Rfam assigns this 110-nucleotide sequence from Pedobacter puniceus to the family "Group II catalytic intron D1-D4-1". Rfam describes the family as follows. Group II introns are found in rRNA, tRNA and mRNA of organelles in fungi, plants and protists, and also in mRNA in bacteria. Pairs were carried over by alignment from the consensus structure.
RNA sequence: GAGAUCUCUUAGAUUACGAGCUAAUCAUAAAGAGAAGUCAGCAGAGGUCGUAGUACUUGAGGCAACGAGGUAUCAACAAACGAUACAAGGUCUCACAAACAAGGAAGGAC
Numbered sequence: 001g002a003g004a005u006c007u008c009u010u011a012g013a014u015u016a017c018g019a020g021c022u023a024a025u026c027a028u029a030a031a032g033a034g035a036a037g038u039c040a041g042c043a044g045a046g047g048u049c050g051u052a053g054u055a056c057u058u059g060a061g062g063c064a065a066c067g068a069g070g071u072a073u074c075a076a077c078a079a080a081c082g083a084u085a086c087a088a089g090g091u092c093u094c095a096c097a098a099a100c101a102a103g104g105a106a107g108g109a110c
Base pairs, nucleotide, nucleotide: 001025004022006020007019008018010016011015038045039044047110048109049108056103057102058101059100